[Rfam]
Shown here is a 136-nucleotide RNA from Pelecanoides urinatrix, a member of the family "Small nucleolar RNA SNORA31". The organism belongs to Pelecanoides, within Eukaryota. The family's RNA type in Rfam is H/ACA-box small nucleolar RNA. It scores 63 bits against the family's covariance model. ACA31 (SNORA31) belongs to the H/ACA class of snoRNAs which are thought to guide the sites of modification of uridines to pseudouridines. ACA31 is predicted to guide the pseudouridylation of U3713 in 28S rRNA and U218 in 18S rRNA. This family includes the mouse homologue snoMBI-161. Pairs were carried over by alignment from the consensus structure, which was predicted with RNAalifold.
RNA sequence: AAGCAUCUAUUUGACAGACCUGGAGCAAAUGGCCAUUGCUUCUCUGGUUCUUGCUGAGAUGCAACAGUAAUGGGUUCCUUGCGCUUUCUACCUGCCUGACCUUGUGGCAGUCUGGAUUGAACAAAGGAAUACAGAU
Numbered sequence: 001a002a003g004c005a006u007c008u009a010u011u012u013g014a015c016a017g018a019c020c021u022g023g024a025g026c027a028a029a030u031g032g033c034c035a036u037u038g039c040u041u042c043u044c045u046g047g048u049u050c051u052u053g054c055u056g057a058g059a060u061g062c063a064a065c066a067g068u069a070a071u072g073g074g075u076u077c078c079u080u081g082c083g084c085u086u087u088c089u090a091c092c093u094g095c096c097u098g099a100c101c102u103u104g105u106g107g108c109a110g111u112c113u114g115g116a117u118u119g120a121a122c123a124a125a126g127g128a129a130u131a132c133a134g135a136u
Base pairs, nucleotide, nucleotide: 003062004061005060006059007058008057012053013052017049018048019047020046023041024040025039026038027037028036076128077127078126079125080124084119087116088115089114090113092110093109094108095107096106